RNA: Small nucleolar RNA SNORD125
RNA sequence: GCUGGGAACGGCCUCUGGUGAUGACCCUUCUCUGUCUGAUGGCUCUGGUGCUGAUGAGCAUCAACCCAAAGCCUCUAAGAAGUUGGCUGAAGAGGCCGUUCCUCA
Numbered sequence: 001g002c003u004g005g006g007a008a009c010g011g012c013c014u015c016u017g018g019u020g021a022u023g024a025c026c027c028u029u030c031u032c033u034g035u036c037u038g039a040u041g042g043c044u045c046u047g048g049u050g051c052u053g054a055u056g057a058g059c060a061u062c063a064a065c066c067c068a069a070a071g072c073c074u075c076u077a078a079g080a081a082g083u084u085g086g087c088u089g090a091a092g093a094g095g096c097c098g099u100u101c102c103u104c105a
Stems, first nucleotide, its partner, number of pairs: 007100009